This 153-nucleotide sequence from Ruminococcaceae bacterium AF10-16 belongs to the Rfam family "glmS glucosamine-6-phosphate activated ribozyme aptamer". This entry contains a glucosamine-6-phosphate activated ribozyme that is found in the mRNA for GlmS. GlmS is an enzyme that uses fructose-6-phosphate and glutamine to generate glucosamine-6-phosphate. The ribozyme catalyses self cleavage of the glmS mRNA that is thought to regulate GlmS activity. The organism belongs to Oscillospiraceae, within Bacteria. Pairs were carried over by alignment from the consensus structure, which is taken from published work.
RNA sequence: UCUCCAUCAUAAGCGCCAGCGCCCGCCUUUGGCGGGACGACGAGGUGGGAAGAGGAUCGAAAUUUCGGCGGAUGCUUCCCCGUGCCCGUGGGCGCGCACACAGCCGGCAAACAUGCGGGCGACCGCAGAACAAAGGGGCUGUGACCACGGGAA
Numbered sequence: 001u002c003u004c005c006a007u008c009a010u011a012a013g014c015g016c017c018a019g020c021g022c023c024c025g026c027c028u029u030u031g032g033c034g035g036g037a038c039g040a041c042g043a044g045g046u047g048g049g050a051a052g053a054g055g056a057u058c059g060a061a062a063u064u065u066c067g068g069c070g071g072a073u074g075c076u077u078c079c080c081c082g083u084g085c086c087c088g089u090g091g092g093c094g095c096g097c098a099c100a101c102a103g104c105c106g107g108c109a110a111a112c113a114u115g116c117g118g119g120c121g122a123c124c125g126c127a128g129a130a131c132a133a134a135g136g137g138g139c140u141g142u143g144a145c146c147a148c149g150g151g152a153a
Base pairs, nucleotide, nucleotide: 022036023035024034025033026032027031048079049078050077051076052075057068058067059066060065080096083094084093085092099143100142101141102140103139104138105137114127115126116125117124118123
Rfam links the family to the GO terms regulation of gene expression and catalytic activity.